[Rfam]
Nucleotides: 038
Base pairs, nucleotide, nucleotide: 002021003020004019005018010037011036012035
Number, partner (000 for none) and nucleotide at each position: 001000u002021a003020g004019g005018g006000g007000c008000a009000a010037g011036c012035u013000g014000a015000a016000a017000a018005c019004c020003c021002u022000a023000g024000a025000g026000a027000a028000a029000a030000g031000a032000g033000u034000a035012g036011g037010c038000a
A member of the RNA family "DUF805b RNA", 38 nucleotides long.